RNA sequence: AGGUGAAAGAAGAGGCACCCGCUUCUCACCUGAUUGGCGCAACUGUAGCUGACAGGUAACACGUGAUCCAGAUAUACAUCUAUGUAUGUUGACACAAGAGUGCGGGAGACUUUCAGUUUCCGGCACUCUUUUCUUUUA
Numbered sequence: 001a002g003g004u005g006a007a008a009g010a011a012g013a014g015g016c017a018c019c020c021g022c023u024u025c026u027c028a029c030c031u032g033a034u035u036g037g038c039g040c041a042a043c044u045g046u047a048g049c050u051g052a053c054a055g056g057u058a059a060c061a062c063g064u065g066a067u068c069c070a071g072a073u074a075u076a077c078a079u080c081u082a083u084g085u086a087u088g089u090u091g092a093c094a095c096a097a098g099a100g101u102g103c104g105g106g107a108g109a110c111u112u113u114c115a116g117u118u119u120c121c122g123g124c125a126c127u128c129u130u131u132u133c134u135u136u137u138a
Stems, first nucleotide, its partner, number of pairs: 011026006028057003036050003039046002101125003105121006
Source information:
This 138-nucleotide RNA sequence from Jeotgalibacillus soli belongs to the Rfam family "Ribosomal protein L20 leader". Rfam classes the family as a cis-regulatory leader. From the family's description: This family is a putative r-protein leader autoregulatory structure found in B. subtilis and other low-GC Gram-positive bacteria. It is located in the 5' untranslated regions of mRNAs encoding initiation factor 3 followed by ribosomal proteins L35 and L20 (infC-rpmI-rplT).